A member of the RNA family "Bacterial RNase P class A" from Actinokineospora spheciospongiae, 401 nucleotides long. It scores 268 bits against the family's covariance model. The family's consensus secondary structure is taken from published work.
[Rfam]
Nucleotides: 401
Stems, first nucleotide, its partner, number of pairs: 001397009011386001012350007020038007043384003047381005052230004059286004064226005070082004084098001085096004099221002104219002106215003121160002123156009168186006188210001189208008234307004266298006278290004314333008
Number, partner (000 for none) and nucleotide at each position: 001397c002396g003395a004394g005393u006392c007391g008390g009389c010000c011386g012350g013349g014348c015347g016346g017345c018344c019000g020038c021037g022036g023035c024034g025033g026032g027000u028000g029000a030000u031000c032026c033025c034024c035023g036022u037021c038020g039000a040000g041000g042000a043384a044383a045382g046000u047381c048380c049379g050378g051377a052230c053229u054228c055227c056000g057000c058000a059286g060285g061284g062283c063000a064226g065225g066224g067223u068222g069000a070082u071081u072080g073079c074000u075000a076000a077000c078000g079073g080072c081071a082070a083000c084098c085096c086095g087094g088093g089000g090000u091000g092000a093088c094087c095086c096085g097000c098084g099221g100220g101000a102000a103000a104219g105218u106215g107214c108213c109000a110000c111000a112000g113000a114000g115000a116000a117000c118000a119000g120000a121160c122159c123156g124155c125154c126153c127152g128151g129150u130149c131148g132000g133000u134000c135000g136000g137000g138000g139000g140000a141000a142000c143000c144000c145000g146000a147000g148131c149130g150129g151128c152127c153126g154125g155124g156123u157000a158000a159122g160121g161000g162000u163000g164000a165000a166000a167000c168186g169185g170184u171183g172182g173181u174000g175000u176000a177000a178000g179000a180000g181173a182172c183171c184170a185169c186168c187000a188210g189208c190207a191206c192205c193204c194203c195202g196201g197000g198000u199000g200000a201196c202195c203194g204193g205192g206191g207190u208189g209000g210188c211000u212000c213108g214107g215106u216000a217000a218105a219104c220100c221099c222068c223067a224066c225065c226064c227055g228054g229053a230052g231000c232000a233000a234307g235306g236305c237304c238000a239000a240000g241000a242000g243000g244000g245000g246000g247000u248000c249000c250000c251000g252000c253000g254000a255000g256000g257000g258000g259000c260000c261000c262000c263000u264000g265000c266298g267297c268296a269295g270294a271293c272000g273000c274000c275000c276000g277000a278290g279289g280288g281287c282000u283062g284061c285060c286059c287281g288280c289279c290278c291000g292000a293271g294270u295269c296268u297267g298266c299000g300000g301000g302000u303000a304237g305236g306235c307234c308000g309000c310000a311000c312000g313000a314333g315332c316331c317330u318329g319328u320327c321326g322000g323000c324000g325000a326321c327320g328319g329318c330317a331316g332315g333314c334000c335000c336000a337000g338000a339000u340000g341000g342000a343000u344018g345017g346016u347015c348014g349013c350012c351000a352000c353000c354000g355000g356000g357000g358000c359000g360000c361000g362000a363000g364000c365000c366000c367000c368000g369000g370000u371000a372000c373000a374000g375000a376000a377051u378050c379049c380048g381047g382045c383044u384043u385000a386011c387000a388000c389009g390008c391007c392006g393005g394004c395003u396002c397001g398000c399000c400000c401000g